[Rfam]
The record is an 83-nucleotide RNA, which matches "TPP riboswitch aptamer (THI element)" in Rfam. Rfam links the family to the GO term thiamine pyrophosphate binding. The family's consensus secondary structure is taken from published work.
RNA sequence: GCGACUCGGGGUGCCCUUCUGCGUGAAGGCUGAGAAAUACCCGUAUCACCUGAUCUGGAUAAUGCCAGCGUAGGGAAGUCGCA
Number, nucleotide and partner (000 for none) at each position: 001g000002c081003g080004a079005c078006u077007c043008g042009g041010g040011g000012u037013g030014c029015c028016c000017u026018u000019c000020u000021g000022c000023g000024u000025g000026a017027a000028g015029g014030c013031u000032g000033a000034g000035a000036a000037a012038u000039a000040c010041c009042c008043g007044u000045a000046u000047c000048a000049c074050c073051u072052g071053a000054u000055c068056u067057g066058g065059a000060u000061a000062a000063u000064g000065c058066c057067a056068g055069c000070g000071u052072a051073g050074g049075g000076a000077a006078g005079u004080c003081g002082c000083a000